[Rfam]
RNA sequence: UCUAUCGUUUUCUAGGGUUCCGCAAUUUGUAUUGGUCUGGACCGAGAGAAAACACAUAGCAUUGCUAUGGCACGGAGGGAUAAAAGCCCGGGAGAU
Numbered sequence: 001u002c003u004a005u006c007g008u009u010u011u012c013u014a015g016g017g018u019u020c021c022g023c024a025a026u027u028u029g030u031a032u033u034g035g036u037c038u039g040g041a042c043c044g045a046g047a048g049a050a051a052a053c054a055c056a057u058a059g060c061a062u063u064g065c066u067a068u069g070g071c072a073c074g075g076a077g078g079g080a081u082a083a084a085a086g087c088c089c090g091g092g093a094g095a096u
Stems, first nucleotide, its partner, number of pairs: 007053006015043002020040002022037001023034004055069006071091001073094001077089003
Notes:
The family of this 96-nucleotide RNA from Ornithinibacillus halophilus is "Guanidine-I riboswitch aptamer". The base pairs follow the family's consensus structure. About the family: This family represents a conserved RNA structure found upstream of the ykkC and yxkD genes in Bacillus subtilis and related genes in other bacteria. A search with the family's covariance model found it, with a score of 83 bits.